[Rfam]
This 185-nucleotide RNA sequence from Marinithermofilum abyssi belongs to the Rfam family "Lysine riboswitch aptamer".
The match comes from Rfam's covariance-model search (112 bits).
The family has 47 seed sequences and 3,224 matches in Rfam 15.1.
Riboswitches are metabolite binding domains within certain messenger RNAs that serve as precision sensors for their corresponding targets. Allosteric rearrangement of mRNA structure is mediated by ligand binding, and this results in modulation of gene expression.

RNA sequence: CAUGUGAAUAGAGGCGCAGGAGAUCAUGAGUACCUGCUGGAAGGUGCGGUGCCGUUGACCAGCAGCAAAAGGGAUCCCUGCCGAAGUUUUUCCGUCUGCCGCGGGCGGGAAAGCUGGGCCCGUAUCCGAACAGGGGCGGGACUGUCACGAAAAGCAGCAGCUUUUCGUGGAGCACUAUCACAGGG
Numbered sequence: 001c002a003u004g005u006g007a008a009u010a011g012a013g014g015c016g017c018a019g020g021a022g023a024u025c026a027u028g029a030g031u032a033c034c035u036g037c038u039g040g041a042a043g044g045u046g047c048g049g050u051g052c053c054g055u056u057g058a059c060c061a062g063c064a065g066c067a068a069a070a071g072g073g074a075u076c077c078c079u080g081c082c083g084a085a086g087u088u089u090u091u092c093c094g095u096c097u098g099c100c101g102c103g104g105g106c107g108g109g110a111a112a113g114c115u116g117g118g119c120c121c122g123u124a125u126c127c128g129a130a131c132a133g134g135g136g137c138g139g140g141a142c143u144g145u146c147a148c149g150a151a152a153a154g155c156a157g158c159a160g161c162u163u164u165u166c167g168u169g170g171a172g173c174a175c176u177a178u179c180a181c182a183g184g185g
Stems, first nucleotide, its partner, number of pairs: 008178004016081005023075003034065007085115012116143002119140005125134002145170009